This 133-nucleotide RNA sequence from Alligator mississippiensis belongs to the Rfam family "Small nucleolar RNA SNORA15". A search with the family's covariance model found it, with a score of 76 bits. The organism belongs to Alligator, within Eukaryota. Rfam's curators write: ACA15 is a member of the H/ACA class of snoRNA that guide the sites of modification of uridines to pseudouridines. For this family Rfam cites "RNomics: an experimental approach that identifies 201 candidates for novel, small, non-messenger RNAs in mouse" (Huttenhofer et al., EMBO J, 2001).
RNA sequence: GCAUGGAUGAAUUCUGUGUUAGCUUUAUCAAUAGUUUAUGCAGUCAGACACCAUGCUGAAGUAUUUCCACUUUAACUAUUUCUAAUGUCAUGCUGUAUGCCAAGCUGACAUGUUUUAAAAAGUGGAUACACAU
Numbered sequence: 001g002c003a004u005g006g007a008u009g010a011a012u013u014c015u016g017u018g019u020u021a022g023c024u025u026u027a028u029c030a031a032u033a034g035u036u037u038a039u040g041c042a043g044u045c046a047g048a049c050a051c052c053a054u055g056c057u058g059a060a061g062u063a064u065u066u067c068c069a070c071u072u073u074a075a076c077u078a079u080u081u082c083u084a085a086u087g088u089c090a091u092g093c094u095g096u097a098u099g100c101c102a103a104g105c106u107g108a109c110a111u112g113u114u115u116u117a118a119a120a121a122g123u124g125g126a127u128a129c130a131c132a133u
Base pairs, nucleotide, nucleotide: 001056002055003054004053005052006051014043015042016041017040018039019038066126069123070122071121072120073119083118085116087114089112090111091110092109094107095106